[Rfam]
RNA: SAM (S-adenosyl methionine) riboswitch aptamer
RNA sequence: GGUCAAGAGCGCCAGCGCGAAGCCCCGGCUCGCUGGCCGGCAACCCUCGUAGCAGCGGGUGGGGUGCCCCGGGUGAUGACCUGGUCCGGUACGCCGAGUACCGGGCAAGCCGCGACC
Numbered sequence: 001g002g003u004c005a006a007g008a009g010c011g012c013c014a015g016c017g018c019g020a021a022g023c024c025c026c027g028g029c030u031c032g033c034u035g036g037c038c039g040g041c042a043a044c045c046c047u048c049g050u051a052g053c054a055g056c057g058g059g060u061g062g063g064g065u066g067c068c069c070c071g072g073g074u075g076a077u078g079a080c081c082u083g084g085u086c087c088g089g090u091a092c093g094c095c096g097a098g099u100a101c102c103g104g105g106c107a108a109g110c111c112g113c114g115a116c117c
Stems, first nucleotide, its partner, number of pairs: 001081004009038001011037006021030002039068003044064003048059001084106009